[Rfam]
RNA: Bacterial RNase P class A
RNA sequence: GCGGAGAGCCGGAUGGCCGCUUUGGUUUGACCCUUGGGUCGGGCCGGGAGGAAAGUCCGGACUCCAUGAGACAACGGUGCCGGGUAACGCCCGGCCGGGGUAACCCGAGGGAAAGCGCCACAGAAAACAAACCGCUUCGGUCCGCCGAAGUAAGGAUGAAACGGUGGGGUAAGAGCCCACCGCGGACCUGGCAACAGGGACGGCACGGCAAGCCCCACCGGGAGCAAUGCCAAAUAGGGGUCUCGUGCGGGGUCGGUCCUUUCGGGGAUACCGCCACGCAGGGUCGUUUCAGCCCGAGAGGCCCGGGUUGGCAGCUUGAUCCCGUCGGUAACGGCGGGGCCAGAGGAAUGGUCAUCGAACCGUGGUAACGCGGGGAACAGAAUCCGGCUUACAGGCUCUCCGCGCUU
Numbered sequence: 001g002c003g004g005a006g007a008g009c010c011g012g013a014u015g016g017c018c019g020c021u022u023u024g025g026u027u028u029g030a031c032c033c034u035u036g037g038g039u040c041g042g043g044c045c046g047g048g049a050g051g052a053a054a055g056u057c058c059g060g061a062c063u064c065c066a067u068g069a070g071a072c073a074a075c076g077g078u079g080c081c082g083g084g085u086a087a088c089g090c091c092c093g094g095c096c097g098g099g100g101u102a103a104c105c106c107g108a109g110g111g112a113a114a115g116c117g118c119c120a121c122a123g124a125a126a127a128c129a130a131a132c133c134g135c136u137u138c139g140g141u142c143c144g145c146c147g148a149a150g151u152a153a154g155g156a157u158g159a160a161a162c163g164g165u166g167g168g169g170u171a172a173g174a175g176c177c178c179a180c181c182g183c184g185g186a187c188c189u190g191g192c193a194a195c196a197g198g199g200a201c202g203g204c205a206c207g208g209c210a211a212g213c214c215c216c217a218c219c220g221g222g223a224g225c226a227a228u229g230c231c232a233a234a235u236a237g238g239g240g241u242c243u244c245g246u247g248c249g250g251g252g253u254c255g256g257u258c259c260u261u262u263c264g265g266g267g268a269u270a271c272c273g274c275c276a277c278g279c280a281g282g283g284u285c286g287u288u289u290c291a292g293c294c295c296g297a298g299a300g301g302c303c304c305g306g307g308u309u310g311g312c313a314g315c316u317u318g319a320u321c322c323c324g325u326c327g328g329u330a331a332c333g334g335c336g337g338g339g340c341c342a343g344a345g346g347a348a349u350g351g352u353c354a355u356c357g358a359a360c361c362g363u364g365g366u367a368a369c370g371c372g373g374g375g376a377a378c379a380g381a382a383u384c385c386g387g388c389u390u391a392c393a394g395g396c397u398c399u400c401c402g403c404g405c406u407u
Stems, first nucleotide, its partner, number of pairs: 001403010011392001012356007020048003024044001026042002053390003057387005062224004070290002073287001075220005080094005095109001096107004110215002115213002117209003132155002134151007163181006182204001183202002187198004228313004238304006281295004320339008